[Rfam]
RNA sequence: GAUUAUCGAAGGAUAAGACCUGAAUUCAUAAUC
Dot-bracket structure: ((((((.(.(((......))).....)))))))
S4-Flavobacteria ribosomal protein leader: a 33-nucleotide RNA from Flavobacterium daejeonense. Clan: Ribosomal Protein S4 Leader clan.